RNA: U1 spliceosomal RNA
RNA sequence: AUACUUAUCUACGGGAUUGAUGAGUGAUAAAAAAAGCUCAUGGCCUAGGCUAUCAACUUUCAUUACACUUAAAAGGGUUGUUGUCCUAAGGUCUAUUUAAGUAGUGGAGCCUACAUCAUAAUUUAUAAUCGCGGAGGUCUGCAUUCGCGCAGUCUUUAC
Numbered sequence: 001a002u003a004c005u006u007a008u009c010u011a012c013g014g015g016a017u018u019g020a021u022g023a024g025u026g027a028u029a030a031a032a033a034a035a036g037c038u039c040a041u042g043g044c045c046u047a048g049g050c051u052a053u054c055a056a057c058u059u060u061c062a063u064u065a066c067a068c069u070u071a072a073a074a075g076g077g078u079u080g081u082u083g084u085c086c087u088a089a090g091g092u093c094u095a096u097u098u099a100a101g102u103a104g105u106g107g108a109g110c111c112u113a114c115a116u117c118a119u120a121a122u123u124u125a126u127a128a129u130c131g132c133g134g135a136g137g138u139c140u141g142c143a144u145u146c147g148c149g150c151a152g153u154c155u156u157u158a159c
Base pairs, nucleotide, nucleotide: 013114014046015045017043018042019041021040022039023038024037025036047087048086049085054080055079057077058076059075060073089112090111091110092108093107094106096104097103133157134156135155136154140151141150142149